[Rfam]
RNA sequence: CAAGGAGCCUCUUUGACAGCCGAGUGAUUUAAAGCAAUCAAAUUCCUUUAGCCUUAAAUCGUGCAGCUGUUUUACAAGCUCUUCC
Dot-bracket structure: ..((((((.(.(..((((((.(.(((((((((.((...............)).))))))))).).))))))..).).))))))..